Source information:
The record is a 110-nucleotide RNA from Paenibacillus xylanivorans, which matches "epsC RNA" in Rfam. The source organism's lineage runs through Bacteria, Bacillati, Bacillota, Paenibacillaceae and Paenibacillus.
[Rfam]
RNA sequence: AGGUGAUGUCUACUAUACCUUUAUCAAGGUAGGCACUCGGUCACACUGUGGGUAGUGUACCUUAGACGUAUAUCGUCAAGGGUGUGAUGUGAGGUUGGGUUUAAUGCCCU
Numbered sequence: 001a002g003g004u005g006a007u008g009u010c011u012a013c014u015a016u017a018c019c020u021u022u023a024u025c026a027a028g029g030u031a032g033g034c035a036c037u038c039g040g041u042c043a044c045a046c047u048g049u050g051g052g053u054a055g056u057g058u059a060c061c062u063u064a065g066a067c068g069u070a071u072a073u074c075g076u077c078a079a080g081g082g083u084g085u086g087a088u089g090u091g092a093g094g095u096u097g098g099g100u101u102u103a104a105u106g107c108c109c110u
Stems, first nucleotide, its partner, number of pairs: 001020004007035007036093004040088008050062005065077004097109004
Dot-bracket structure: [[[[..(((((((...]]]]........)))))))((((((((((((..(((((...)))))..((((.....))))...)))))))).))))...((((.....)))).